[Rfam]
RNA sequence: AACAAUUUGUCCCGCGUCCCACGGCGUUUUAAAAAGUCCCUAUAGAAAUAUAGAAAUAGGGACUUUUUUAAAACGCCGUGGGACGCGGGACAAACUGUUAA
Numbered sequence: 001a002a003c004a005a006u007u008u009g010u011c012c013c014g015c016g017u018c019c020c021a022c023g024g025c026g027u028u029u030u031a032a033a034a035a036g037u038c039c040c041u042a043u044a045g046a047a048a049u050a051u052a053g054a055a056a057u058a059g060g061g062a063c064u065u066u067u068u069u070a071a072a073a074c075g076c077c078g079u080g081g082g083a084c085g086c087g088g089g090a091c092a093a094a095c096u097g098u099u100a101a
Stems, first nucleotide, its partner, number of pairs: 001099004006094030
The record is a 101-nucleotide sequence from Cnephaeus nilssonii, which matches "mir-9261 microRNA precursor family" in Rfam. Rfam links the family to the GO terms RISC complex and miRNA-mediated post-transcriptional gene silencing. The match comes from Rfam's covariance-model search (89 bits). Taxonomically the source falls in Cnephaeus (Eukaryota, Metazoa, Theria, Boreoeutheria). Pairs were carried over by alignment from the consensus structure, which was predicted with RNAalifold.